Shown here is a 101-nucleotide RNA sequence from Hylia prasina, a member of the family "Small nucleolar RNA SNORD124". Gene Ontology terms of the family: RNA processing and nucleolus. By type it is a C/D-box small nucleolar RNA. The family's consensus secondary structure was predicted with WAR.
RNA sequence: UCCCUCCCUGGAAGGGGUGAUGUGUCAGCACAGCCCAGAUAAGGACUCUGAGACUCCGUGUGAUGAAAUUCGCGGAGUGCUCUGACCUUCCAUGGUGAGGG
Numbered sequence: 001u002c003c004c005u006c007c008c009u010g011g012a013a014g015g016g017g018u019g020a021u022g023u024g025u026c027a028g029c030a031c032a033g034c035c036c037a038g039a040u041a042a043g044g045a046c047u048c049u050g051a052g053a054c055u056c057c058g059u060g061u062g063a064u065g066a067a068a069u070u071c072g073c074g075g076a077g078u079g080c081u082c083u084g085a086c087c088u089u090c091c092a093u094g095g096u097g098a099g100g101g
Stems, first nucleotide, its partner, number of pairs: 009092007